RNA sequence: GUAGCCUUUAAUUUAACCCCGUGAGGUUAAAAAGGAGUAAGAAAUUACAUAGAUAUUGGUGUGCCGAAUAUAAUGGCUGCCUAAAAACUAUGCUAAGAUUAUUAAACCUUCUUUAUCCUCAUGGAAAAAGAAGGUUUUUUU
Dot-bracket structure: ....(((((...((((((......)))))))))))..................................(((((....((.((.....)).))....)))))..((((((((((.(((....))).)))))))))).....
Numbered sequence: 001g002u003a004g005c006c007u008u009u010a011a012u013u014u015a016a017c018c019c020c021g022u023g024a025g026g027u028u029a030a031a032a033a034g035g036a037g038u039a040a041g042a043a044a045u046u047a048c049a050u051a052g053a054u055a056u057u058g059g060u061g062u063g064c065c066g067a068a069u070a071u072a073a074u075g076g077c078u079g080c081c082u083a084a085a086a087a088c089u090a091u092g093c094u095a096a097g098a099u100u101a102u103u104a105a106a107c108c109u110u111c112u113u114u115a116u117c118c119u120c121a122u123g124g125a126a127a128a129a130g131a132a133g134g135u136u137u138u139u140u141u
Stems, first nucleotide, its partner, number of pairs: 005035005013030006070102005079093002082090002105136010116125003
The record is a 141-nucleotide sequence from Paramaledivibacter caminithermalis, which matches "PyrR binding site" in Rfam. A search with the family's covariance model found it, with a score of 56 bits.